[Rfam]
RNA sequence: CCGUCAUUUCGGUAGGUGAGGUUACCACAGGGAUUGGGUUUAUCCCGAAGAUUGCUGCCGCGAGAUUGUGGAGACACAAAGAGCUGGUCAGCAGGCUGCGUCGAGAAGGCGCAACCUAAUGCAAUUGAUAUGCCCUGUGAUGCUAAAGCUUGGACGAUUUGUACAGAACC
Numbered sequence: 001c002c003g004u005c006a007u008u009u010c011g012g013u014a015g016g017u018g019a020g021g022u023u024a025c026c027a028c029a030g031g032g033a034u035u036g037g038g039u040u041u042a043u044c045c046c047g048a049a050g051a052u053u054g055c056u057g058c059c060g061c062g063a064g065a066u067u068g069u070g071g072a073g074a075c076a077c078a079a080a081g082a083g084c085u086g087g088u089c090a091g092c093a094g095g096c097u098g099c100g101u102c103g104a105g106a107a108g109g110c111g112c113a114a115c116c117u118a119a120u121g122c123a124a125u126u127g128a129u130a131u132g133c134c135c136u137g138u139g140a141u142g143c144u145a146a147a148g149c150u151u152g153g154a155c156g157a158u159u160u161g162u163a164c165a166g167a168a169c170c
Stems, first nucleotide, its partner, number of pairs: 005166001008163001010161001011155001013107001015150003020144003026139007051125005058086001060084002067078004094116002097113001100110003

The family of this 170-nucleotide RNA from Lachnoclostridium sp. An169 is "M-box riboswitch aptamer (ykoK leader)". On this family, see Dann CE 3rd et al., Cell 2007: "Structure and mechanism of a metal-sensing regulatory RNA". The organism belongs to Lachnoclostridium, within Bacteria.